[Rfam]
RNA: MIR1024 microRNA precursor family
Organism: Physcomitrium patens
RNA sequence: GUAGACGCCUUGCAAUUCAAGCAGACUCUAUUAUGCGGCUGCCGCGGACACUACGUGGUUUGUUGUGCUUCAGUCUGGUUGGAUUGUAGGCCUCCGCAA
Numbered sequence: 001g002u003a004g005a006c007g008c009c010u011u012g013c014a015a016u017u018c019a020a021g022c023a024g025a026c027u028c029u030a031u032u033a034u035g036c037g038g039c040u041g042c043c044g045c046g047g048a049c050a051c052u053a054c055g056u057g058g059u060u061u062g063u064u065g066u067g068c069u070u071c072a073g074u075c076u077g078g079u080u081g082g083a084u085u086g087u088a089g090g091c092c093u094c095c096g097c098a099a
Base pairs, nucleotide, nucleotide: 001097002096004094005093007091008090009089011088012087013086014085015084016083017082018081019080020079022077023076024075025074026073027072030070035066036065037064038063039062041059042058043057044056045055046054